The record is a 54-nucleotide RNA from Electrophorus electricus, which matches "UnaL2 LINE 3' element" in Rfam. From the family's description: The eel long interspersed element (LINE) UnaL2 and its partner short interspersed element (SINE) share a conserved 3' tail containing a stem-loop that is critical for their retrotransposition. Rfam 15.1 lists 493,311 matches to the family in 99 species. By type it is a cis-regulatory element. It scores 57 bits against the family's covariance model.
RNA sequence: UUCAGUCAUAAUUGUAAGUCGCUUUGGGUAAAAGUGUCAGCUAAAUGCCAUAAA
Numbered sequence: 001u002u003c004a005g006u007c008a009u010a011a012u013u014g015u016a017a018g019u020c021g022c023u024u025u026g027g028g029u030a031a032a033a034g035u036g037u038c039a040g041c042u043a044a045a046u047g048c049c050a051u052a053a054a
Stems, first nucleotide, its partner, number of pairs: 013043001014041002020036006